[Rfam]
Shown here is a 47-nucleotide sequence from Chrysemys picta, a member of the family "Histone 3' UTR stem-loop".
Rfam links the family to the GO term mRNA 3'-end processing by stem-loop binding and cleavage.
The source organism's lineage runs through Eukaryota, Eumetazoa, Chordata, Tetrapoda and Chrysemys picta.
It is annotated as a cis-regulatory element.
The family's consensus secondary structure is taken from published work.
For this family Rfam cites "The sequence of the stem and flanking sequences at the 3' end of histone mRNA are critical determinants for the binding of the stem-loop binding protein" (Williams and Marzluff, Nucleic Acids Res, 1995).
It scores 37 bits against the family's covariance model.
RNA sequence: CCAACGGCUCUUUUAAGAGCCACCCAUCCCUUUCAAAAACAGAGCUG
Numbered sequence: 001c002c003a004a005c006g007g008c009u010c011u012u013u014u015a016a017g018a019g020c021c022a023c024c025c026a027u028c029c030c031u032u033u034c035a036a037a038a039a040c041a042g043a044g045c046u047g
Base pairs, nucleotide, nucleotide: 006021007020008019009018010017011016